[Rfam]
RNA sequence: UCCAUCGCGAGGUGGAAUCUGAAGGAAGCGCAAAUCCAAAUCGACCAGCCGAGGUACACAAACGCUGUAUAAGGCGUCUUUCUCCGGGCGAGGUUGCCUCAUAAACCAAAGCCCAUCAUUACCAAGGGAGUCUGGCGUAAACAGCGCGGUUGGGUCGCCACAGUUGUUUGU
Numbered sequence: 001u002c003c004a005u006c007g008c009g010a011g012g013u014g015g016a017a018u019c020u021g022a023a024g025g026a027a028g029c030g031c032a033a034a035u036c037c038a039a040a041u042c043g044a045c046c047a048g049c050c051g052a053g054g055u056a057c058a059c060a061a062a063c064g065c066u067g068u069a070u071a072a073g074g075c076g077u078c079u080u081u082c083u084c085c086g087g088g089c090g091a092g093g094u095u096g097c098c099u100c101a102u103a104a105a106c107c108a109a110a111g112c113c114c115a116u117c118a119u120u121a122c123c124a125a126g127g128g129a130g131u132c133u134g135g136c137g138u139a140a141a142c143a144g145c146g147c148g149g150u151u152g153g154g155u156c157g158c159c160a161c162a163g164u165u166g167u168u169u170g171u
Stems, first nucleotide, its partner, number of pairs: 001016006028171003032167001037163001042157005047151005063146006074138003078134001082130004086114004092107004